[Rfam]
RNA sequence: CGACCUACCCCGAGACCCACAGCAGGAGCAUUCAUGUUAUGGUCCCUGUCAGAUUCCUUGAAUCUGUGAAUUCAGCU
Numbered sequence: 001c002g003a004c005c006u007a008c009c010c011c012g013a014g015a016c017c018c019a020c021a022g023c024a025g026g027a028g029c030a031u032u033c034a035u036g037u038u039a040u041g042g043u044c045c046c047u048g049u050c051a052g053a054u055u056c057c058u059u060g061a062a063u064c065u066g067u068g069a070a071u072u073c074a075g076c077u
Stems, first nucleotide, its partner, number of pairs: 012046001014044004021077003025073003028040001030038001050066007
Dot-bracket structure: ...........[.[[[[...(((.((((.(.......).)]]]].]...(((((((...)))))))....))).)))